[Rfam]
RNA sequence: UUGGAGGAUUAAGAAAGUCGAGUCAUUGCAGUCCAGCAGGUUCGACUGAUACGCUCCUCCUACAUGAAAAAGGUAGAGGAACAGGCCCUGGGUGCCAGGUCGACUCUGGGCCUACUUACUCUACCUACAGUGA
Numbered sequence: 001u002u003g004g005a006g007g008a009u010u011a012a013g014a015a016a017g018u019c020g021a022g023u024c025a026u027u028g029c030a031g032u033c034c035a036g037c038a039g040g041u042u043c044g045a046c047u048g049a050u051a052c053g054c055u056c057c058u059c060c061u062a063c064a065u066g067a068a069a070a071a072g073g074u075a076g077a078g079g080a081a082c083a084g085g086c087c088c089u090g091g092g093u094g095c096c097a098g099g100u101c102g103a104c105u106c107u108g109g110g111c112c113u114a115c116u117u118a119c120u121c122u123a124c125c126u127a128c129a130g131u132g133a
Base pairs, nucleotide, nucleotide: 003060004059005058006057007056008055010051011050018045019044020043021042022041023040024039026035028033071126072125073124074123075122076121077120078119083113084112085111086110087109088108090106
Dot-bracket structure: ..((((((.((......(((((((.(.(....).)...)))))))....))...))))))..........((((((((....((((((.(...............).)))))).....)))))))).......